[Rfam]
Background
Shown here is a 52-nucleotide RNA sequence from Oryctolagus cuniculus, a member of the family "MAT2A 3'UTR stem loop C". On this family, see Parker et al., Genome Res 2011: "New families of human regulatory RNA structures identified by comparative analysis of vertebrate genomes". Taxonomically the source falls in Oryctolagus (Eukaryota, Gnathostomata, Euteleostomi, Tetrapoda).
RNA sequence: GCUCUCUGAAUGACUGGUGUGGCUGCAGAGAAACCAGCUUCCUUUAGAGAGC
Numbered sequence: 001g002c003u004c005u006c007u008g009a010a011u012g013a014c015u016g017g018u019g020u021g022g023c024u025g026c027a028g029a030g031a032a033a034c035c036a037g038c039u040u041c042c043u044u045u046a047g048a049g050a051g052c
Stems, first nucleotide, its partner, number of pairs: 001052009012039001014037005019026002